[Rfam]
RNA sequence: ACGGGCAGGAUGUCCGUGGUUCUAUGCAGCAACAAGUUUGCCUGCAAACUUGCAGCCCAAAAAUGUACACGGAUGUAUAUUUUUGGGCGA
Number, nucleotide and partner (000 for none) at each position: 001a017002c016003g015004g014005g013006c012007a000008g000009g000010a000011u000012g006013u005014c004015c003016g002017u001018g000019g000020u000021u000022c000023u000024a000025u000026g000027c000028a000029g000030c000031a000032a000033c052034a051035a050036g049037u048038u047039u046040g045041c000042c000043u000044g000045c040046a039047a038048a037049c036050u035051u034052g033053c000054a000055g088056c087057c086058c085059a084060a083061a082062a081063a080064u079065g078066u077067a076068c075069a000070c000071g000072g000073a000074u000075g068076u067077a066078u065079a064080u063081u062082u061083u060084u059085g058086g057087g056088c055089g000090a000